RNA sequence: AAUGGCAAGUGAUGAGUAUUUAUCUUAUUCUACACACAGAUUUAUCAGUGUUGACAAACAAUCUCUAUUUAUUAUCUGAUGCCAUA
Numbered sequence: 001a002a003u004g005g006c007a008a009g010u011g012a013u014g015a016g017u018a019u020u021u022a023u024c025u026u027a028u029u030c031u032a033c034a035c036a037c038a039g040a041u042u043u044a045u046c047a048g049u050g051u052u053g054a055c056a057a058a059c060a061a062u063c064u065c066u067a068u069u070u071a072u073u074a075u076c077u078g079a080u081g082c083c084a085u086a
Stems, first nucleotide, its partner, number of pairs: 003084005